[Rfam]
RNA sequence: GGCCGGGUGGAGAGGCGUAAUACAAAACCCGAAAGGGAAAUAUGCCCGGAGCGUUUCGUACGGCUCUAGUUGACACCCGGCUUCCAGCUA
Numbered sequence: 001g002g003c004c005g006g007g008u009g010g011a012g013a014g015g016c017g018u019a020a021u022a023c024a025a026a027a028c029c030c031g032a033a034a035g036g037g038a039a040a041u042a043u044g045c046c047c048g049g050a051g052c053g054u055u056u057c058g059u060a061c062g063g064c065u066c067u068a069g070u071u072g073a074c075a076c077c078c079g080g081c082u083u084c085c086a087g088c089u090a
Stems, first nucleotide, its partner, number of pairs: 001082009014046003018042002028037003048067005

This 90-nucleotide RNA sequence from Cellvibrio sp. PSBB023 belongs to the Rfam family "sRNA-Xcc1".
The family's RNA type in Rfam is small RNA.
The family's consensus secondary structure was predicted with RNAalifold.